[Rfam]
RNA sequence: ACCACUGAGCCACCUUCCCAGCCCCUCUGUACAGUAUAUUUAAAAAAAAGAAUUCAGGGCUGGGAAGGUGGCUCAGUGGU
Numbered sequence: 001a002c003c004a005c006u007g008a009g010c011c012a013c014c015u016u017c018c019c020a021g022c023c024c025c026u027c028u029g030u031a032c033a034g035u036a037u038a039u040u041u042a043a044a045a046a047a048a049a050g051a052a053u054u055c056a057g058g059g060c061u062g063g064g065a066a067g068g069u070g071g072c073u074c075a076g077u078g079g080u
Stems, first nucleotide, its partner, number of pairs: 002079023